[Rfam]
RNA: SAH (S-adenosyl-L-homocysteine) riboswitch aptamer
Organism: Dokdonella immobilis
RNA sequence: GCUGCCGAGGGGCGCUGCAGGUCAGUUCCGCGACGGAACCGGACACAGGCUCGGCACGCGAUUCCCGUAGAACGGCGCCCGCCCCAA
Numbered sequence: 001g002c003u004g005c006c007g008a009g010g011g012g013c014g015c016u017g018c019a020g021g022u023c024a025g026u027u028c029c030g031c032g033a034c035g036g037a038a039c040c041g042g043a044c045a046c047a048g049g050c051u052c053g054g055c056a057c058g059c060g061a062u063u064c065c066c067g068u069a070g071a072a073c074g075g076c077g078c079c080c081g082c083c084c085c086a087a
Stems, first nucleotide, its partner, number of pairs: 003056006021044003025040001